[Rfam]
RNA: c-di-AMP riboswitch aptamer (ydaO/yuaA leader)
RNA sequence: CCGGGAUGGUCCCGGAGGCACGACGAGGAUGGGGGACCCAAUUUCGGCCGAAUGCCGGUCCUGGGGUGAAAGCAGGCCUUAUACCUGCCGGGCACCUGACAGCCCGACCCGACAGCUAACCCCGUAUGCGCACGUCAGGAGAGGA
Numbered sequence: 001c002c003g004g005g006a007u008g009g010u011c012c013c014g015g016a017g018g019c020a021c022g023a024c025g026a027g028g029a030u031g032g033g034g035g036a037c038c039c040a041a042u043u044u045c046g047g048c049c050g051a052a053u054g055c056c057g058g059u060c061c062u063g064g065g066g067u068g069a070a071a072g073c074a075g076g077c078c079u080u081a082u083a084c085c086u087g088c089c090g091g092g093c094a095c096c097u098g099a100c101a102g103c104c105c106g107a108c109c110c111g112a113c114a115g116c117u118a119a120c121c122c123c124g125u126a127u128g129c130g131c132a133c134g135u136c137a138g139g140a141g142a143g144g145a
Stems, first nucleotide, its partner, number of pairs: 001028002029125006039063002064110003073087004090105004